mir-2774 microRNA precursor family: a 70-nucleotide sequence from Bombyx mori. Taxonomically the source falls in Bombyx (Eukaryota, Endopterygota, Aparaglossata, Obtectomera). Pairs were carried over by alignment from the consensus structure, which was predicted with RNAalifold. Gene Ontology terms of the family: miRNA-mediated post-transcriptional gene silencing and RISC complex.
[Rfam]
RNA sequence: AAAACAUUCGGACCGUCGGUCUACCGAGCAAUAUCGCUUCCCGCUCAGUGGCAGAUCUUCCCUUUGUCGU
Numbered sequence: 001a002a003a004a005c006a007u008u009c010g011g012a013c014c015g016u017c018g019g020u021c022u023a024c025c026g027a028g029c030a031a032u033a034u035c036g037c038u039u040c041c042c043g044c045u046c047a048g049u050g051g052c053a054g055a056u057c058u059u060c061c062c063u064u065u066g067u068c069g070u
Base pairs, nucleotide, nucleotide: 004067005066006065010061011060012059015056016055017054021051022050023049024048026046027045028044029043